The record is a 183-nucleotide RNA sequence from Limnobacter sp. MED105, which matches "Manganese Mn2+ riboswitch aptamer (yybP-ykoY)" in Rfam.
The pairing is the family consensus, mapped onto this sequence.
The sequence is in the family's curated seed alignment.
Rfam describes the family as follows. This RNA was originally discovered in E. coli during a large scale screen and was named SraF. The family was later found to exist upstream of related families of protein genes in many bacteria, including the the yybP and ykoK genes in B. subtilis. The specific functions of these proteins are unknown, but this structured RNA element may be involved in their genetic regulation as a riboswitch.
Lineage of the source: Bacteria > Pseudomonadota > Betaproteobacteria > Burkholderiaceae > Limnobacter.
A reference for the family is Dambach et al. (2015), "The ubiquitous yybP-ykoY riboswitch is a manganese-responsive regulatory element", Mol Cell.
[Rfam]
RNA sequence: CGGUUAACAUACCAUCACUCAUUGGGGAGUAGCCUCCUUUUCUCGAAAAGGGCUUGCAUCAACAUACUUGGCCCAAAAGCCAUGGUGCAAGCGGUUUCCACACUUGGCAAGACCUUUGACUGCAUUUCCACCGCUUCGGCCUGGGUGGAAUGUGGUCAUUUGGUUCUCAAGGCCGUGGAAUUU
Numbered sequence: 001c002g003g004u005u006a007a008c009a010u011a012c013c014a015u016c017a018c019u020c021a022u023u024g025g026g027g028a029g030u031a032g033c034c035u036c037c038u039u040u041u042c043u044c045g046a047a048a049a050g051g052g053c054u055u056g057c058a059u060c061a062a063c064a065u066a067c068u069u070g071g072c073c074c075a076a077a078a079g080c081c082a083u084g085g086u087g088c089a090a091g092c093g094g095u096u097u098c099c100a101c102a103c104u105u106g107g108c109a110a111g112a113c114c115u116u117u118g119a120c121u122g123c124a125u126u127u128c129c130a131c132c133g134c135u136u137c138g139g140c141c142u143g144g145g146u147g148g149a150a151u152g153u154g155g156u157c158a159u160u161u162g163g164u165u166c167u168c169a170a171g172g173c174c175g176u177g178g179a180a181u182u183u
Base pairs, nucleotide, nucleotide: 038048052092053091054090055089056088057087058086059085060084061083069082070081071080072079093183094182096180097179098178099177